[Rfam]
Rfam assigns this 91-nucleotide RNA sequence from Solanum tuberosum to the family "mir-395 microRNA precursor family". About the family: mir-395 was identified in both Arabidopsis thaliana and Oryza sativa computationally and was later experimentally verified. mir-395 is thought to target mRNAs coding for ATP sulphurylases. The mature sequence is excised from the 3' arm of the hairpin. On this family, see Jones-Rhoades and Bartel, Mol Cell 2004: "Computational Identification of Plant MicroRNAs and Their Targets, Including a Stress-Induced miRNA". The family's consensus secondary structure was predicted with PFOLD. It scores 59 bits against the family's covariance model. NCBI's taxonomy places the organism under Eukaryota, Embryophyta, Spermatophyta, eudicotyledons, Solanum.
RNA sequence: GUGUUCCCUAGAGUUCCCUUAACCACUUCAUGAGGGCUUACUUUGUUGUUUGAAGCCCUACGGAAGUGUUUGGGGAAACUCCCGGGUUCAC
Numbered sequence: 001g002u003g004u005u006c007c008c009u010a011g012a013g014u015u016c017c018c019u020u021a022a023c024c025a026c027u028u029c030a031u032g033a034g035g036g037c038u039u040a041c042u043u044u045g046u047u048g049u050u051u052g053a054a055g056c057c058c059u060a061c062g063g064a065a066g067u068g069u070u071u072g073g074g075g076a077a078a079c080u081c082c083c084g085g086g087u088u089c090a091c
Stems, first nucleotide, its partner, number of pairs: 006086003011081005017075006024068006033059003